[Rfam]
Nucleotides: 076
Stems, first nucleotide, its partner, number of pairs: 001076001003074003007070003011066003015062012028049005
Number, partner (000 for none) and nucleotide at each position: 001076u002000a003074g004073u005072u006000u007070u008069u009068a010000c011066u012065u013064u014000c015062g016061g017060u018059u019058a020057u021056c022055u023054a024053g025052c026051u027000u028049u029048a030047u031046g032045a033000c034000g035000a036000g037000c038000a039000a040000a041000a042000c043000a044000c045032u046031c047030a048029u049028a050000c051026a052025g053024c054023u055022a056021g057020a058019u059018a060017a061016c062015c063000a064013a065012a066011g067000a068009u069008a070007a071000c072005a073004a074003c075000a076001a
The record is a 76-nucleotide RNA from Cynoglossus semilaevis, which matches "mir-9/mir-79 microRNA precursor family" in Rfam. The base pairs follow the family's consensus structure, which was predicted with RNAalifold. A reference for the family is Lagos-Quintana et al. (2001), "Identification of novel genes coding for small expressed RNAs", Science.